[Rfam]
RNA sequence: UUUUAAAUAGGUGAUGGAGUUCACCAUAAUUGCGGAAUGCUGAUGACUCCUACAGGUAU
Numbered sequence: 001u002u003u004u005a006a007a008u009a010g011g012u013g014a015u016g017g018a019g020u021u022c023a024c025c026a027u028a029a030u031u032g033c034g035g036a037a038u039g040c041u042g043a044u045g046a047c048u049c050c051u052a053c054a055g056g057u058a059u
Stems, first nucleotide, its partner, number of pairs: 010025004016050006032040002
Dot-bracket structure: .........[[[[..((((((]]]]......((.....))....)))))).........
The family of this 59-nucleotide RNA from Clostridium amylolyticum is "Fluoride riboswitch aptamer (crcB RNA motif)". Lineage of the source: Bacteria > Bacillati > Bacillota > Clostridia > Clostridium.